[Rfam]
About this RNA: A member of the RNA family "Bacterial RNase P class A" from Azobacteroides pseudotrichonymphae, 369 nucleotides long. By type it is a ribozyme. A search with the family's covariance model found it, with a score of 231 bits.
RNA sequence: GUAGCCAAUUAAACUGUCGCUUUUUGUAUUAAAAGAGGAAAGUCCGGACAACGUAGAGUACCUUACUAUCUAACGGAUAGCUGUUUGUAAAAACAGAGUCAAGUAGAAGAAAACAACCGCCUUUUAAAAUUUUUUAAGGUAAGGGUGAGAAGGUGAGGUAAGAGCUUACCAGUCUUUACAGAAAUGUAAAAAGCUGUACUACUUAGGGGUUGCAAGGUCAUGUAUACCGACGAAUAAUAGGAUUACUCGUCCGAUGUCGGGGGGUAGACUGCUUGAAUUUAAUGGAUACAUUAAAUCUAGAUAAAUGACAGUUGCCUGAAUGAAUCUAUGAUUCAGGAACAGAAUCCGGCUUAUAGAUUGGCUACUUAU
Numbered sequence: 001g002u003a004g005c006c007a008a009u010u011a012a013a014c015u016g017u018c019g020c021u022u023u024u025u026g027u028a029u030u031a032a033a034a035g036a037g038g039a040a041a042g043u044c045c046g047g048a049c050a051a052c053g054u055a056g057a058g059u060a061c062c063u064u065a066c067u068a069u070c071u072a073a074c075g076g077a078u079a080g081c082u083g084u085u086u087g088u089a090a091a092a093a094c095a096g097a098g099u100c101a102a103g104u105a106g107a108a109g110a111a112a113a114c115a116a117c118c119g120c121c122u123u124u125u126a127a128a129a130u131u132u133u134u135u136a137a138g139g140u141a142a143g144g145g146u147g148a149g150a151a152g153g154u155g156a157g158g159u160a161a162g163a164g165c166u167u168a169c170c171a172g173u174c175u176u177u178a179c180a181g182a183a184a185u186g187u188a189a190a191a192a193g194c195u196g197u198a199c200u201a202c203u204u205a206g207g208g209g210u211u212g213c214a215a216g217g218u219c220a221u222g223u224a225u226a227c228c229g230a231c232g233a234a235u236a237a238u239a240g241g242a243u244u245a246c247u248c249g250u251c252c253g254a255u256g257u258c259g260g261g262g263g264g265u266a267g268a269c270u271g272c273u274u275g276a277a278u279u280u281a282a283u284g285g286a287u288a289c290a291u292u293a294a295a296u297c298u299a300g301a302u303a304a305a306u307g308a309c310a311g312u313u314g315c316c317u318g319a320a321u322g323a324a325u326c327u328a329u330g331a332u333u334c335a336g337g338a339a340c341a342g343a344a345u346c347c348g349g350c351u352u353a354u355a356g357a358u359u360g361g362c363u364a365c366u367u368a369u
Base pairs, nucleotide, nucleotide: 001365002364003363004362005361006360007359008358009357010356011354012313013312014311015310016309017308018307020035021034022033023032024031040352041351042350044349045348046347047346048345049212050211051210052209056248057247058246059245061208062207063206064205065204066080067079068078069077070076081096083094084093085092086091097203098202103199104198105197117144118143119140120139121138122137123136126133127132152170153169154168155167156166157165172194173192175190176189177188178187179186180185216270217269218268219267227260228259229258230257231256240252241251242250243249277296278295279294280293281292282291283290284289

Annotation:
Ribonuclease P (RNase P) is a ubiquitous endoribonuclease, found in archaea, bacteria and eukarya as well as chloroplasts and mitochondria.